U5 spliceosomal RNA: a 117-nucleotide RNA from Salix purpurea. Rfam describes the family as follows. U5 RNA is a component of both types of known spliceosome. Rfam classes the family as a spliceosomal small nuclear RNA. The base pairs follow the family's consensus structure, which is taken from published work. A search with the family's covariance model found it, with a score of 91 bits.

RNA sequence: AGCCGCGCGGUGGGCACAGAGCGAACUAUUCUUUCGCCUUUUACUAAAGAAUACCGUGUGCUCGCCGCAGAUAGCGGCAUACGCUUAUUUUUGGAGGGCUCUUUCCUCUUUGAGGCA
Numbered sequence: 001a002g003c004c005g006c007g008c009g010g011u012g013g014g015c016a017c018a019g020a021g022c023g024a025a026c027u028a029u030u031c032u033u034u035c036g037c038c039u040u041u042u043a044c045u046a047a048a049g050a051a052u053a054c055c056g057u058g059u060g061c062u063c064g065c066c067g068c069a070g071a072u073a074g075c076g077g078c079a080u081a082c083g084c085u086u087a088u089u090u091u092u093g094g095a096g097g098g099c100u101c102u103u104u105c106c107u108c109u110u111u112g113a114g115g116c117a
Stems, first nucleotide, its partner, number of pairs: 003077004008067011027053008097116001099114003